Background
The record is a 104-nucleotide RNA from Humidesulfovibrio mexicanus, which matches "azaaromatic riboswitch aptamer (yjdF RNA)" in Rfam. The family's consensus secondary structure is taken from published work.

RNA sequence: GCUCACCAGGAUAAAAACACGGUCCGGUUGGUAGUCCGGACGCACGCCGCAUGGCGUGCCAGUAACCUUCCCCCCUUGGGUCGUCCGUUCCUGGGCAUUGUACA
Numbered sequence: 001g002c003u004c005a006c007c008a009g010g011a012u013a014a015a016a017a018c019a020c021g022g023u024c025c026g027g028u029u030g031g032u033a034g035u036c037c038g039g040a041c042g043c044a045c046g047c048c049g050c051a052u053g054g055c056g057u058g059c060c061a062g063u064a065a066c067c068u069u070c071c072c073c074c075c076u077u078g079g080g081u082c083g084u085c086c087g088u089u090c091c092u093g094g095g096c097a098u099u100g101u102a103c104a
Stems, first nucleotide, its partner, number of pairs: 006094006022041006042059006070080003
A search with the family's covariance model found it, with a score of 86 bits.